[Rfam]
RNA sequence: GGUGUAAAGGGUGCGUAGGCGGCUUGGAAAGUCAGAUGUGAAAUACUACAGCUUAACUGUAGAACUGCAUUUGAAACUUCCAGGCUAGAGUGCAGGAGAGGUGAAGGGAAUUCCCGGUGUAAGGGUGAAAUCUGCAGAUAUCGGGAAGAACACCUGUAGCGAAGGCGCUUCACUGGUCUGUUACUGACGCUGAGUGCACGAAGGCGUGGGGAGCGAACGGGAUUAGAUACCCCGGUAGUCCACGCAGUAAACGAUGUUCACUAGGUGUCGGGCGAGUUUCAACUCGUUCGGUGCCGCAGCUAACGCAUUAAGUGAACCACCUGGGGAGUACAGUCGCAAGGCUGAAACUCAAAGGAAU
Numbered sequence: 001g002g003u004g005u006a007a008a009g010g011g012u013g014c015g016u017a018g019g020c021g022g023c024u025u026g027g028a029a030a031g032u033c034a035g036a037u038g039u040g041a042a043a044u045a046c047u048a049c050a051g052c053u054u055a056a057c058u059g060u061a062g063a064a065c066u067g068c069a070u071u072u073g074a075a076a077c078u079u080c081c082a083g084g085c086u087a088g089a090g091u092g093c094a095g096g097a098g099a100g101g102u103g104a105a106g107g108g109a110a111u112u113c114c115c116g117g118u119g120u121a122a123g124g125g126u127g128a129a130a131u132c133u134g135c136a137g138a139u140a141u142c143g144g145g146a147a148g149a150a151c152a153c154c155u156g157u158a159g160c161g162a163a164g165g166c167g168c169u170u171c172a173c174u175g176g177u178c179u180g181u182u183a184c185u186g187a188c189g190c191u192g193a194g195u196g197c198a199c200g201a202a203g204g205c206g207u208g209g210g211g212a213g214c215g216a217a218c219g220g221g222a223u224u225a226g227a228u229a230c231c232c233c234g235g236u237a238g239u240c241c242a243c244g245c246a247g248u249a250a251a252c253g254a255u256g257u258u259c260a261c262u263a264g265g266u267g268u269c270g271g272g273c274g275a276g277u278u279u280c281a282a283c284u285c286g287u288u289c290g291g292u293g294c295c296g297c298a299g300c301u302a303a304c305g306c307a308u309u310a311a312g313u314g315a316a317c318c319a320c321c322u323g324g325g326g327a328g329u330a331c332a333g334u335c336g337c338a339a340g341g342c343u344g345a346a347a348c349u350c351a352a353a354g355g356a357a358u
Stems, first nucleotide, its partner, number of pairs: 001321003009318001011199004016192001018191003022085007030078002032074009046062006089185003092181005100174007107151001111147008122133003159166002204245006213239002218234004256317006264295012299306002323350003332343004